[Rfam]
RNA sequence: AAAAAGGGCGCUCGUCUUAGCACGUUCCAAUGUUAGGAGCUUGAUUGCAGACGCAUUGCGCCGUUGGCUCAUCCAUACGCUCUUCGUGGGUGGGGGCGUGCGCUACAUUGCCGCCUUUGAUGGGUUCUGGCGUGCUCAGUGGGGUAUGGCUUUGCAUAUCCAGUGCGUAAUUUUUGUAUUUAGGGGCAGGCGGCUGCACUUUGGUGACAACCGAAUUGCGGAUUUGUCUGCGUGUCGGUGGUCCGUGCGCUGCGCCCCC
Numbered sequence: 001a002a003a004a005a006g007g008g009c010g011c012u013c014g015u016c017u018u019a020g021c022a023c024g025u026u027c028c029a030a031u032g033u034u035a036g037g038a039g040c041u042u043g044a045u046u047g048c049a050g051a052c053g054c055a056u057u058g059c060g061c062c063g064u065u066g067g068c069u070c071a072u073c074c075a076u077a078c079g080c081u082c083u084u085c086g087u088g089g090g091u092g093g094g095g096g097c098g099u100g101c102g103c104u105a106c107a108u109u110g111c112c113g114c115c116u117u118u119g120a121u122g123g124g125u126u127c128u129g130g131c132g133u134g135c136u137c138a139g140u141g142g143g144g145u146a147u148g149g150c151u152u153u154g155c156a157u158a159u160c161c162a163g164u165g166c167g168u169a170a171u172u173u174u175u176g177u178a179u180u181u182a183g184g185g186g187c188a189g190g191c192g193g194c195u196g197c198a199c200u201u202u203g204g205u206g207a208c209a210a211c212c213g214a215a216u217u218g219c220g221g222a223u224u225u226g227u228c229u230g231c232g233u234g235u236c237g238g239u240g241g242u243c244c245g246u247g248c249g250c251u252g253c254g255c256c257c258c259c
Base pairs, nucleotide, nucleotide: 008166009165010164011163012162013053014052015051016050017049054141055140056139057138058137060135061134062132063131064130065129066128067127142161143160144159145158146157147156148155184257185256186255187254190253191252192251193250194249196248197247198246199245
U11 spliceosomal RNA: a 259-nucleotide sequence from Drosophila virilis. It is annotated as a spliceosomal small nuclear RNA. Taxonomically the source falls in Drosophila (Eukaryota, Arthropoda, Allotriocarida, Diptera). The literature on the family includes a 1988 paper in Proc Natl Acad Sci U S A by Montzka and Steitz, "Additional low-abundance human small nuclear ribonucleoproteins: U11, U12, etc". It is one of the family's seed sequences.